[Rfam]
Rfam assigns this 95-nucleotide RNA sequence from Carlito syrichta to the family "Small nucleolar RNA SNORD116". The family's RNA type in Rfam is C/D-box small nucleolar RNA. Rfam 15.1 lists 3,260 matches to the family in 170 species. The literature on the family includes a 2000 paper in Proc Natl Acad Sci U S A by Cavaille et al., "Identification of brain-specific and imprinted small nucleolar RNA genes exhibiting an unusual genomic organization". Lineage of the source: Eukaryota > Teleostomi > Dipnotetrapodomorpha > Mammalia > Carlito.

RNA sequence: GGAUCAAUGAUGAGUAUCCCAAAAAAAAUUCCUUGGAAAAGUUGAAGAAAAUGUGUGAAAACUCUCAACCGUCAUCUUCAUUGCAAGUGAGGUCC
Numbered sequence: 001g002g003a004u005c006a007a008u009g010a011u012g013a014g015u016a017u018c019c020c021a022a023a024a025a026a027a028a029u030u031c032c033u034u035g036g037a038a039a040a041g042u043u044g045a046a047g048a049a050a051a052u053g054u055g056u057g058a059a060a061a062c063u064c065u066c067a068a069c070c071g072u073c074a075u076c077u078u079c080a081u082u083g084c085a086a087g088u089g090a091g092g093u094c095c
Stems, first nucleotide, its partner, number of pairs: 001095005028056002031053001033049002